[Rfam]
RNA sequence: AAAGUAAGGGAGGGCGUUGCAGAUCGAGGGAACUCGGUCUGAGGAAAGUCCGGACUCCCGAAAGACCAAACUUGCUGGGUAACGCCCAGUGCGAGCGAUCGUGAGGAGAGUGCCACAGAAACAUACCGCCGAUGGUGCAUUAAGCAUACAGGCAAGGGUGCAAGGGUGCGGUAAGAGCGCACCAGCAGUAUCGAGAGGUACUGGCUCGGUAAACCCCGGUUGGGAGCAAGGCAGAUGGAACAACGGUUGGUCUUUUACCUGUUCCAGGAUUAUGAACCGCUUGAGGCAUUUGGCAACAAAUGUCCCAGAUAGAUAACUCCCCCCAAGAUCUCUGUCGGGAUCUUGGAGAACAGAAUCCGGCUUAUGACUUACUUUUCCC
Numbered sequence: 001a002a003a004g005u006a007a008g009g010g011a012g013g014g015c016g017u018u019g020c021a022g023a024u025c026g027a028g029g030g031a032a033c034u035c036g037g038u039c040u041g042a043g044g045a046a047a048g049u050c051c052g053g054a055c056u057c058c059c060g061a062a063a064g065a066c067c068a069a070a071c072u073u074g075c076u077g078g079g080u081a082a083c084g085c086c087c088a089g090u091g092c093g094a095g096c097g098a099u100c101g102u103g104a105g106g107a108g109a110g111u112g113c114c115a116c117a118g119a120a121a122c123a124u125a126c127c128g129c130c131g132a133u134g135g136u137g138c139a140u141u142a143a144g145c146a147u148a149c150a151g152g153c154a155a156g157g158g159u160g161c162a163a164g165g166g167u168g169c170g171g172u173a174a175g176a177g178c179g180c181a182c183c184a185g186c187a188g189u190a191u192c193g194a195g196a197g198g199u200a201c202u203g204g205c206u207c208g209g210u211a212a213a214c215c216c217c218g219g220u221u222g223g224g225a226g227c228a229a230g231g232c233a234g235a236u237g238g239a240a241c242a243a244c245g246g247u248u249g250g251u252c253u254u255u256u257a258c259c260u261g262u263u264c265c266a267g268g269a270u271u272a273u274g275a276a277c278c279g280c281u282u283g284a285g286g287c288a289u290u291u292g293g294c295a296a297c298a299a300a301u302g303u304c305c306c307a308g309a310u311a312g313a314u315a316a317c318u319c320c321c322c323c324c325a326a327g328a329u330c331u332c333u334g335u336c337g338g339g340a341u342c343u344u345g346g347a348g349a350a351c352a353g354a355a356u357c358c359g360g361c362u363u364a365u366g367a368c369u370u371a372c373u374u375u376u377c378c379c
Stems, first nucleotide, its partner, number of pairs: 001375008011365001012321003016317003020041009046363003050360005055226004064254002069221003073218002075089005090104001091102004105216002110214002112210003126157002128153003133150002135147002165183006185205001186203007230278002236266006245259003249255001285304008
The family of this 379-nucleotide RNA sequence from Roseofilum reptotaenium is "Bacterial RNase P class A".
NCBI's taxonomy places the organism under Bacteria, Bacillati, Cyanophyceae, Roseofilum, Roseofilum reptotaenium.